[Rfam]
RNA sequence: UCACGAGCCCCGUGGCGCUGCCGGACCCCCGACCUGGCAGGGCCACGGGGCUGCUU
Number, nucleotide and partner (000 for none) at each position: 001u000002c000003a000004c053005g052006a000007g051008c050009c049010c048011c047012g046013u045014g044015g043016c042017g000018c040019u039020g038021c037022c036023g000024g000025a000026c000027c000028c000029c000030c000031g000032a000033c000034c000035u000036g022037g021038c020039a019040g018041g000042g016043c015044c014045a013046c012047g011048g010049g009050g008051c007052u005053g004054c000055u000056u000